[Rfam]
RNA sequence: UAAAUAUACAGGCAAAUUCAUCGAAAGGUGAAGACGCAAAACUAUAGGGGCUAAAGCCAAAAGGCUAUGUCUGCCAGUUACCGAU
Numbered sequence: 001u002a003a004a005u006a007u008a009c010a011g012g013c014a015a016a017u018u019c020a021u022c023g024a025a026a027g028g029u030g031a032a033g034a035c036g037c038a039a040a041a042c043u044a045u046a047g048g049g050g051c052u053a054a055a056g057c058c059a060a061a062a063g064g065c066u067a068u069g070u071c072u073g074c075c076a077g078u079u080a081c082c083g084a085u
Base pairs, nucleotide, nucleotide: 012037013036017032018031019030020029021028022027040079041078042077043076047075048074049071050070051069056065057064058063
RNA: c-di-GMP-I riboswitch aptamer